Shown here is an 86-nucleotide sequence from Salvia splendens, a member of the family "mir-156 microRNA precursor family".
About the family: This family represents the plant microRNA (miRNA) precursor mir-156.
The match comes from Rfam's covariance-model search (84 bits).
Pairs were carried over by alignment from the consensus structure, which was predicted with PFOLD.
Lineage of the source: Eukaryota > Tracheophyta > Nepetoideae > Salvia subgen. Calosphace > core Calosphace.
RNA sequence: GUGACAGAAGAGAGUGAGCACACAUGGUGUUUUCUUGCAUGAAGUAACAUGCUUGAAGCUAUGUGUGCUCACCCUCUGUCUGUCAC
Number, nucleotide and partner (000 for none) at each position: 001g086002u085003g084004a083005c082006a081007g080008a079009a000010g076011a075012g074013a000014g072015u071016g070017a069018g068019c067020a066021c065022a000023c063024a062025u061026g000027g000028u000029g000030u000031u000032u000033u000034c000035u000036u000037g000038c000039a000040u000041g000042a000043a000044g000045u000046a000047a000048c000049a000050u000051g000052c000053u000054u000055g000056a000057a000058g000059c000060u000061a025062u024063g023064u000065g021066u020067g019068c018069u017070c016071a015072c014073c000074c012075u011076c010077u000078g000079u008080c007081u006082g005083u004084c003085a002086c001